[Rfam]
RNA sequence: AAGUCAUUACCAAGGCUUUUAGAAUGUGGUUUCUUGUUUGCUGUGGAUGUGACCUUAAAGAAACGCCCACUAGGUUUGUUUGCUGCUACAAUGGUAACAUUCAUCCUUGUGGGAACAUUU
Numbered sequence: 001a002a003g004u005c006a007u008u009a010c011c012a013a014g015g016c017u018u019u020u021a022g023a024a025u026g027u028g029g030u031u032u033c034u035u036g037u038u039u040g041c042u043g044u045g046g047a048u049g050u051g052a053c054c055u056u057a058a059a060g061a062a063a064c065g066c067c068c069a070c071u072a073g074g075u076u077u078g079u080u081u082g083c084u085g086c087u088a089c090a091a092u093g094g095u096a097a098c099a100u101u102c103a104u105c106c107u108u109g110u111g112g113g114a115a116c117a118u119u120u
Stems, first nucleotide, its partner, number of pairs: 003053005010046003026041004066113004073106002076103001084099002
RNA: Small nucleolar RNA SNORA32